[Rfam]
RNA: trpB ncRNA motif
Organism: Limosilactobacillus reuteri
RNA sequence: AGUACAGAUAUGACCUGGGUUUAUUCGCAGAUUAUAUCUGUACCGGCUGCUUUAUCAUGUACAAAUAAGGGCCUGUACGGAUUCCACGUACGGGCUUUUUCUAUUUC
Numbered sequence: 001a002g003u004a005c006a007g008a009u010a011u012g013a014c015c016u017g018g019g020u021u022u023a024u025u026c027g028c029a030g031a032u033u034a035u036a037u038c039u040g041u042a043c044c045g046g047c048u049g050c051u052u053u054a055u056c057a058u059g060u061a062c063a064a065a066u067a068a069g070g071g072c073c074u075g076u077a078c079g080g081a082u083u084c085c086a087c088g089u090a091c092g093g094g095c096u097u098u099u100u101c102u103a104u105u106u107c
Base pairs, nucleotide, nucleotide: 002043003042004041005040006039007038008037009036010035011034015030016029019028070096071095072094073093074092075091076090077089078088079087